[Rfam]
RNA: Fluoride riboswitch aptamer (crcB RNA motif)
Organism: Gluconobacter oxydans
RNA sequence: GAGGCAGAAGGCAAUGGAUUCUGCCUGACCGUUCCCGGUCGAACCGCUUCAUCCGGAAGCUGAUGAUUCCUGUCCCUCG
Numbered sequence: 001g002a003g004g005c006a007g008a009a010g011g012c013a014a015u016g017g018a019u020u021c022u023g024c025c026u027g028a029c030c031g032u033u034c035c036c037g038g039u040c041g042a043a044c045c046g047c048u049u050c051a052u053c054c055g056g057a058a059g060c061u062g063a064u065g066a067u068u069c070c071u072g073u074c075c076c077u078c079g
Stems, first nucleotide, its partner, number of pairs: 010025004016070003020066002046060004